[Rfam]
Background:
The record is a 126-nucleotide sequence from Nannospalax galili, which matches "Small nucleolar RNA SNORA77" in Rfam. The literature on the family includes a 2006 paper in RNA by Schattner et al., "A computational screen for mammalian pseudouridylation guide H/ACA RNAs". A search with the family's covariance model found it, with a score of 103 bits. The family's RNA type in Rfam is H/ACA-box small nucleolar RNA. From the family's description: ACA63 (SNORA77) is a member of the H/ACA class of snoRNAs that guide the sites of modification of uridines to pseudouridines. This snoRNA was identified by computational screening and its expression in mouse experimentally verified by Northern blot and primer extension analysis. ACA63 is proposed to guide the pseudouridylation of 18S rRNA U814.
RNA sequence: UCAGACUCACUCUGCACCCGUCUGCAGCCAUGGACGGGUGCUUCUUCUGUCUGCCAAAGAAACAUUCCAGGGUGCUGUGGCCCCUCUGACCUGUCAGGGGCAAUGCAGCUGCUUUGGGACACAGCA
Numbered sequence: 001u002c003a004g005a006c007u008c009a010c011u012c013u014g015c016a017c018c019c020g021u022c023u024g025c026a027g028c029c030a031u032g033g034a035c036g037g038g039u040g041c042u043u044c045u046u047c048u049g050u051c052u053g054c055c056a057a058a059g060a061a062a063c064a065u066u067c068c069a070g071g072g073u074g075c076u077g078u079g080g081c082c083c084c085u086c087u088g089a090c091c092u093g094u095c096a097g098g099g100g101c102a103a104u105g106c107a108g109c110u111g112c113u114u115u116g117g118g119a120c121a122c123a124g125c126a
Base pairs, nucleotide, nucleotide: 002053003052004051005050006049014041015040016039017038018037019036020035022033023032024031066117067116069114070113071112074109075108076107077106078105079104084100085099086098

The family's consensus secondary structure was predicted with RNAalifold.
The family has 19 seed sequences and 843 matches in Rfam 15.1.